[Rfam]
RNA sequence: AUACACAGAGGACUUUUCUUUCCAGUUCUUCCCAGAGUAGGGAAAAGCUGGAUUGAGAGGGCAGCAAAGAAAAAAA
Numbered sequence: 001a002u003a004c005a006c007a008g009a010g011g012a013c014u015u016u017u018c019u020u021u022c023c024a025g026u027u028c029u030u031c032c033c034a035g036a037g038u039a040g041g042g043a044a045a046a047g048c049u050g051g052a053u054u055g056a057g058a059g060g061g062c063a064g065c066a067a068a069g070a071a072a073a074a075a076a
Stems, first nucleotide, its partner, number of pairs: 014059005021052005029044005
Record summary: The record is a 76-nucleotide RNA sequence from Microcebus murinus, which matches "mir-320 microRNA precursor family" in Rfam. Rfam 15.1 lists 659 matches to the family in 129 species. Gene Ontology terms of the family: miRNA-mediated post-transcriptional gene silencing, RISC complex and long-term synaptic potentiation. The base pairs follow the family's consensus structure, which was predicted with RNAalifold.